RNA sequence: GCGAUGAGCUGAUUUGCAUAAGUCGAAGACAUGCAAAAUUUGCACACAUGAAUGUGAACAUGUGGUCUUUCGCCGCAAACGUAAAAGACGCCUGUAAUUGCAGGCGUC
Numbered sequence: 001g002c003g004a005u006g007a008g009c010u011g012a013u014u015u016g017c018a019u020a021a022g023u024c025g026a027a028g029a030c031a032u033g034c035a036a037a038a039u040u041u042g043c044a045c046a047c048a049u050g051a052a053u054g055u056g057a058a059c060a061u062g063u064g065g066u067c068u069u070u071c072g073c074c075g076c077a078a079a080c081g082u083a084a085a086a087g088a089c090g091c092c093u094g095u096a097a098u099u100g101c102a103g104g105c106g107u108c
Base pairs, nucleotide, nucleotide: 014078015077016076017075024072025071026070027068028067029066030065033043034042045064046063048061049060050059087108088107089106090105091104092103093102094101095100
RNA: BsrF